Source information:
The family of this 135-nucleotide RNA sequence from Myotis davidii is "Small nucleolar RNA SNORA20". The family's RNA type in Rfam is H/ACA-box small nucleolar RNA. The organism belongs to Myotis, within Eukaryota. Rfam describes the family as follows. ACA20 is a member of the H/ACA class of snoRNA that guide the sites of modification of uridines to pseudouridines. Pairs were carried over by alignment from the consensus structure, which was predicted with ILM.

RNA sequence: CUUCCCAUUUAUUUGUUGUCAUAGUCUUUUCAAUGAUCUGAGCAGUUAUAUGCAUGGGAUAAAAUACCAUUGGGCCAUUGUAAAUUGAAAUGGAAUAACUGUUUUAUUUCUUCUGCAUGCAUGGUCUAGACAUUG
Numbered sequence: 001c002u003u004c005c006c007a008u009u010u011a012u013u014u015g016u017u018g019u020c021a022u023a024g025u026c027u028u029u030u031c032a033a034u035g036a037u038c039u040g041a042g043c044a045g046u047u048a049u050a051u052g053c054a055u056g057g058g059a060u061a062a063a064a065u066a067c068c069a070u071u072g073g074g075c076c077a078u079u080g081u082a083a084a085u086u087g088a089a090a091u092g093g094a095a096u097a098a099c100u101g102u103u104u105u106a107u108u109u110c111u112u113c114u115g116c117a118u119g120c121a122u123g124g125u126c127u128a129g130a131c132a133u134u135g
Base pairs, nucleotide, nucleotide: 003059004058005057006056007055008054015046016045017044018043019042023037025036026035070129071128072127073126074125075124076123077122079117080116081115082114087110088109089108090107091106092105093104094103095102096101